[Rfam]
RNA sequence: AUCCAAUGCACAACUGCUCUCAAACCGAGACCUAUAGGCAGUAUAAUACUUCGUCUCUCAUAUCCGACAGUGAAGGGAUUGUCGGAAAUAAGUAUCGCU
Numbered sequence: 001a002u003c004c005a006a007u008g009c010a011c012a013a014c015u016g017c018u019c020u021c022a023a024a025c026c027g028a029g030a031c032c033u034a035u036a037g038g039c040a041g042u043a044u045a046a047u048a049c050u051u052c053g054u055c056u057c058u059c060a061u062a063u064c065c066g067a068c069a070g071u072g073a074a075g076g077g078a079u080u081g082u083c084g085g086a087a088a089u090a091a092g093u094a095u096c097g098c099u
Base pairs, nucleotide, nucleotide: 013042014041015040016039017038019037020036027057028056029055030054031053064085065084066083067082068081069080070079
Notes:
Shown here is a 99-nucleotide RNA sequence, a member of the family "PhotoRC-II RNA". The family's consensus secondary structure is taken from published work. It is one of the family's seed sequences. The family's RNA type in Rfam is cis-regulatory element.